[Rfam]
RNA: Selenocysteine insertion sequence 1
Organism: Mytilus coruscus
RNA sequence: CAUAUAUUUUGUGAUAGUAUGAUACUAAACCCCUAACGGGAUGUAUUGUACUUGAUUUUCAUAUG
Numbered sequence: 001c002a003u004a005u006a007u008u009u010u011g012u013g014a015u016a017g018u019a020u021g022a023u024a025c026u027a028a029a030c031c032c033c034u035a036a037c038g039g040g041a042u043g044u045a046u047u048g049u050a051c052u053u054g055a056u057u058u059u060c061a062u063a064u065g
Stems, first nucleotide, its partner, number of pairs: 001065005016052010031040003